[Rfam]
RNA sequence: AAGUGUGAAGGAGUGGUUUUACUUAAUCAGUGGAAACAAGGAAACACUUAAUUUAGUAAAACCAAUAA
Number, nucleotide and partner (000 for none) at each position: 001a000002a000003g000004u000005g000006u000007g000008a000009a000010g000011g000012a000013g000014u064015g063016g062017u061018u060019u059020u000021a000022c056023u055024u000025a000026a000027u051028c000029a049030g047031u046032g045033g000034a000035a000036a000037c000038a000039a000040g000041g000042a000043a000044a000045c032046a031047c030048u000049u029050a000051a027052u000053u000054u000055a023056g022057u000058a000059a019060a018061a017062c016063c015064a014065a000066u000067a000068a000
The record is a 68-nucleotide RNA, which matches "Cyano-1 RNA" in Rfam. It is one of the family's seed sequences.